[Rfam]
RNA: c-di-AMP riboswitch aptamer (ydaO/yuaA leader)
Organism: Glycomyces paridis
RNA sequence: GGCGAUACACCGCCGCGCGGGCCGGGGACCCAGCCGCGUCGUCCCCCCUCGCCGCCACUCGGGCGGCGACCCGACGCAUGGGGUGAAUCCCGUUGCGGCCCAGCCGCAACGGGUAGGGCGCACUUCCCUGCCCGAACCCGACAGCUAACCCGGUAGGCGGACGAGGAAGAAAGG
Numbered sequence: 001g002g003c004g005a006u007a008c009a010c011c012g013c014c015g016c017g018c019g020g021g022c023c024g025g026g027g028a029c030c031c032a033g034c035c036g037c038g039u040c041g042u043c044c045c046c047c048c049u050c051g052c053c054g055c056c057a058c059u060c061g062g063g064c065g066g067c068g069a070c071c072c073g074a075c076g077c078a079u080g081g082g083g084u085g086a087a088u089c090c091c092g093u094u095g096c097g098g099c100c101c102a103g104c105c106g107c108a109a110c111g112g113g114u115a116g117g118g119c120g121c122a123c124u125u126c127c128c129u130g131c132c133c134g135a136a137c138c139c140g141a142c143a144g145c146u147a148a149c150c151c152g153g154u155a156g157g158c159g160g161a162c163g164a165g166g167a168a169g170a171a172a173g174g
Base pairs, nucleotide, nucleotide: 003019004018021154022153023152024151025150026149031080032079081139082138083137089113090112091111092110093109094108095107096106097105098104116133117132118131119130